[Rfam]
RNA sequence: UUCCCUUGGCCUUACUCCAGGGGCUUUUGCUGUAAAGUGCCUGGCAUUACCGGAGGGUACAUGAACAAGCACGCAUCCCUCCCCAGGGAGACUGCUGUCCUGUGGGGCCCACUCGUGGAGCUGACAGC
Dot-bracket structure: ..(((((.(.......((((.((((((......))))).)))))......).)))))..........(((.(........(((((..(.((......)).).)))))..........).)))......
Numbered sequence: 001u002u003c004c005c006u007u008g009g010c011c012u013u014a015c016u017c018c019a020g021g022g023g024c025u026u027u028u029g030c031u032g033u034a035a036a037g038u039g040c041c042u043g044g045c046a047u048u049a050c051c052g053g054a055g056g057g058u059a060c061a062u063g064a065a066c067a068a069g070c071a072c073g074c075a076u077c078c079c080u081c082c083c084c085a086g087g088g089a090g091a092c093u094g095c096u097g098u099c100c101u102g103u104g105g106g107g108c109c110c111a112c113u114c115g116u117g118g119a120g121c122u123g124a125c126a127g128c
Stems, first nucleotide, its partner, number of pairs: 003057005009051001017044004022040001023038005068122003072118001081107005088101001090099002